[Rfam]
RNA sequence: AAGCUAUGAGGAGAUUUGCGCCGUUAGUGGCAGAUUGGGUCCGCCACAAUUUGUCUGACCUUCAGAUUAUACUAUAGCGCAUCUGAGCUU
Numbered sequence: 001a002a003g004c005u006a007u008g009a010g011g012a013g014a015u016u017u018g019c020g021c022c023g024u025u026a027g028u029g030g031c032a033g034a035u036u037g038g039g040u041c042c043g044c045c046a047c048a049a050u051u052u053g054u055c056u057g058a059c060c061u062u063c064a065g066a067u068u069a070u071a072c073u074a075u076a077g078c079g080c081a082u083c084u085g086a087g088c089u090u
Stems, first nucleotide, its partner, number of pairs: 001090004
Record summary: Shown here is a 90-nucleotide sequence from Chenopodium quinoa, a member of the family "small nucleolar RNA snoR114". Rfam classes the family as a C/D-box small nucleolar RNA. It scores 57 bits against the family's covariance model. Rfam links the family to the GO terms RNA processing and nucleolus. Taxonomically the source falls in Chenopodium (Eukaryota, Mesangiospermae, Caryophyllales, Amaranthaceae). For this family Rfam cites "Mining small RNA sequencing data: a new approach to identify small nucleolar RNAs in Arabidopsis" (Chen and Wu, Nucleic Acids Res, 2009).